[Rfam]
RNA sequence: GCUCUGGGCAGGAUAUCAUCGUAUACUGUAAGUUUGCUAUGAGACACUACAGUAUAGAUGAUGUACUAUCCUGAGCUU
Number, nucleotide and partner (000 for none) at each position: 001g000002c000003u000004c000005u000006g000007g070008g069009c000010a067011g066012g000013a064014u063015a062016u061017c060018a059019u058020c057021g000022u056023a055024u054025a053026c052027u051028g050029u049030a048031a000032g045033u044034u043035u000036g000037c000038u000039a000040u000041g000042a000043g034044a033045c032046a000047c000048u030049a029050c028051a027052g026053u025054a024055u023056a022057g020058a019059u018060g017061a016062u015063g014064u013065a000066c011067u010068a000069u008070c007071c000072u000073g000074a000075g000076c000077u000078u000
Rfam assigns this 78-nucleotide RNA from Mauremys mutica to the family "mir-144 microRNA precursor family". The organism belongs to Mauremys, within Eukaryota. Pairs were carried over by alignment from the consensus structure, which was predicted with RNAalifold.